[Rfam]
RNA sequence: AUCCCAGAUUCUGGGACGAAUUCUAGAUUCAUCCCAGAUUCUGGGACGAAUUCUAGAUUCGUCCCAGAUUCUGGAACGAAUCCAGGAUUCGUCCCAAAAUCU
Numbered sequence: 001a002u003c004c005c006a007g008a009u010u011c012u013g014g015g016a017c018g019a020a021u022u023c024u025a026g027a028u029u030c031a032u033c034c035c036a037g038a039u040u041c042u043g044g045g046a047c048g049a050a051u052u053c054u055a056g057a058u059u060c061g062u063c064c065c066a067g068a069u070u071c072u073g074g075a076a077c078g079a080a081u082c083c084a085g086g087a088u089u090c091g092u093c094c095c096a097a098a099a100u101c102u
Base pairs, nucleotide, nucleotide: 013095014094015093016092017091018090019089020088021087026082027081028080029079030078032076033073037069040068041067043065045063046062047061048060049059050058